[Rfam]
RNA sequence: CCUGUGAAGAGUCAUAUCAAAUGGAAGUAGCUUAUGCAAAACCAGACUUGUUGAAGCAGGAA
Numbered sequence: 001c002c003u004g005u006g007a008a009g010a011g012u013c014a015u016a017u018c019a020a021a022u023g024g025a026a027g028u029a030g031c032u033u034a035u036g037c038a039a040a041a042c043c044a045g046a047c048u049u050g051u052u053g054a055a056g057c058a059g060g061a062a
Base pairs, nucleotide, nucleotide: 001060002059003058004057005056009049010048011047012046013045022044023043024042030037031036

The record is a 62-nucleotide RNA, which matches "RAGATH-18 RNA" in Rfam. Rfam describes the family as follows. Actinobacteria, Firmicutes, Fusobacteria, Thermotogae (1 example).